[Rfam]
Shown here is a 77-nucleotide RNA from Crocodylus porosus, a member of the family "Mammalian CPEB3 ribozyme". Gene Ontology term of the family: RNA nuclease activity.
RNA sequence: GGUCACAAGUUUGAGGCCAUAAUAGAAGCACUCACAGUGCAGCCCUGUCAGAGUCCAAUGAAUCUGAGAAUUCUGCU
Numbered sequence: 001g002g003u004c005a006c007a008a009g010u011u012u013g014a015g016g017c018c019a020u021a022a023u024a025g026a027a028g029c030a031c032u033c034a035c036a037g038u039g040c041a042g043c044c045c046u047g048u049c050a051g052a053g054u055c056c057a058a059u060g061a062a063u064c065u066g067a068g069a070a071u072u073c074u075g076c077u
Stems, first nucleotide, its partner, number of pairs: 013045001015044003021077001023075005028040003049066004054061002
Rfam describes the family as follows. The mammalian CPEB3 ribozyme is a self cleaving RNA located in the second intron of the CPEB3 gene which belongs to a family of genes regulating messenger RNA polyadenylation. This ribozyme is highly conserved and found only in mammals. The CPEB3 ribozyme is structurally and biochemically related to the human hepatitis delta virus (HDV) ribozyme and the HDV ribozyme is proposed to have arisen from the human transcriptome. The source organism's lineage runs through Eukaryota, Gnathostomata, Archosauria, Crocodylidae and Crocodylus.